[Rfam]
The record is a 105-nucleotide sequence from Prunus armeniaca, which matches "MIR6274 microRNA precursor family" in Rfam.
RNA sequence: GGAUAACAAUGUUUUGCUAUUUGCGGCCAAUAACACAAUGACAUGUGGAAAAGUUAUCAUUCAUGUCAUUGAGUUAUUGGCCGGGGAUAGCAAAAAGUGAUAUCC
Numbered sequence: 001g002g003a004u005a006a007c008a009a010u011g012u013u014u015u016g017c018u019a020u021u022u023g024c025g026g027c028c029a030a031u032a033a034c035a036c037a038a039u040g041a042c043a044u045g046u047g048g049a050a051a052a053g054u055u056a057u058c059a060u061u062c063a064u065g066u067c068a069u070u071g072a073g074u075u076a077u078u079g080g081c082c083g084g085g086g087a088u089a090g091c092a093a094a095a096a097g098u099g100a101u102a103u104c105c
Stems, first nucleotide, its partner, number of pairs: 002104004012095009022085001024083011036071010047060001050057001

Overview
The source organism's lineage runs through Eukaryota, Tracheophyta, Mesangiospermae, Rosaceae and Prunus.